This 110-nucleotide RNA from Lentibacillus halodurans belongs to the Rfam family "PyrR binding site".

RNA sequence: UGAACCUUUAACAUAGUCCAGUGAGGCUAAAAAGGUAGUGGAACGUUAGCAUAUGUGAGUAUGUAUGUCCAAGUCCCUUUUUGCUUCAUUGGCGAAAAGGGACUUUUCAA
Numbered sequence: 001u002g003a004a005c006c007u008u009u010a011a012c013a014u015a016g017u018c019c020a021g022u023g024a025g026g027c028u029a030a031a032a033a034g035g036u037a038g039u040g041g042a043a044c045g046u047u048a049g050c051a052u053a054u055g056u057g058a059g060u061a062u063g064u065a066u067g068u069c070c071a072a073g074u075c076c077c078u079u080u081u082u083g084c085u086u087c088a089u090u091g092g093c094g095a096a097a098a099g100g101g102a103c104u105u106u107u108c109a110a
Stems, first nucleotide, its partner, number of pairs: 004036006014029005049068005054059001071105014